A member of the RNA family "Bacterial RNase P class A" from Peptoniphilus harei, 324 nucleotides long. Pairs were carried over by alignment from the consensus structure, which is taken from published work. It is annotated as a ribozyme.
[Rfam]
RNA sequence: UAAGUAAAUUGGUCAACUGCACAUAUGUGAGGAAAGUCCGCGCUCCACAGAGCAGGGAUGCUGGCUAACGGCCAGUGGGGGUGACCCCAAGGCUAGUGCAACAGAAAUAUACCGCCCUAGGGUAAGGUUGGAAAGGCGAGGUAAGAGCUCACCAGGUCAUUAGUGAUAAUGAUGCUAUGUAAACCCCAUUCGGAGCAAAACCAAAUAGGAAUAACAGAUGUUGCUCGCAUCUGCCGGUAGGUAGGUUGCUAGAAAUUAUAGGUAACUAUAAUUCAAGAUUGAUAGUUGACAAAACAGAACGCGGCUUAUAGAUUUGCUUACUAC
Number, nucleotide and partner (000 for none) at each position: 001u320002a319003a318004g317005u316006a315007a314008a313009u312010u311011g309012g290013u289014c288015a287016a286017c285018u284019g000020c029021a028022c027023a000024u000025a000026u000027g022028u021029g020030a000031g000032g000033a000034a307035a306036g305037u000038c304039c303040g302041c301042g300043c195044u194045c193046c192047a000048c000049a000050g226051a225052g224053c223054a000055g000056g191057g190058a189059u188060g187061c075062u074063g073064g072065c071066u000067a000068a000069c000070g000071g065072c064073c063074a062075g061076u090077g088078g087079g086080g085081g000082u000083g000084a000085c080086c079087c078088c077089a000090a076091g186092g185093c000094u000095a000096g184097u183098g180099c179100a178101a000102c000103a000104g000105a000106a000107a000108u000109a000110u000111a000112c127113c126114g123115c122116c121117c000118u000119a000120g000121g116122g115123u114124a000125a000126g113127g112128u000129u000130g000131g000132a000133a000134a000135g153136g152137c000138g150139a149140g148141g000142u000143a000144a000145g000146a000147g000148c140149u139150c138151a000152c136153c135154a000155g175156g173157u172158c171159a170160u169161u168162a167163g000164u000165g000166a000167u162168a161169a160170u159171g158172a157173u156174g000175c155176u000177a000178u100179g099180u098181a000182a000183a097184c096185c092186c091187c060188a059189u058190u057191c056192g046193g045194a044195g043196c000197a000198a000199a247200a246201c245202c244203a000204a000205a000206u000207a000208g000209g235210a000211a000212u000213a000214a000215c000216a000217g231218a230219u229220g228221u227222u000223g053224c052225u051226c050227g221228c220229a219230u218231c217232u000233g000234c000235c209236g000237g000238u000239a000240g000241g000242u000243a000244g202245g201246u200247u199248g000249c000250u000251a000252g000253a000254a273255a272256u271257u270258a269259u268260a267261g266262g000263u000264a000265a000266c261267u260268a259269u258270a257271a256272u255273u254274c000275a000276a000277g000278a000279u000280u000281g000282a000283u000284a018285g017286u016287u015288g014289a013290c012291a000292a000293a000294a000295c000296a000297g000298a000299a000300c042301g041302c040303g039304g038305c036306u035307u034308a000309u011310a000311g010312a009313u008314u007315u006316g005317c004318u003319u002320a001321c000322u000323a000324c000
Notes:
Clan: RNaseP clan.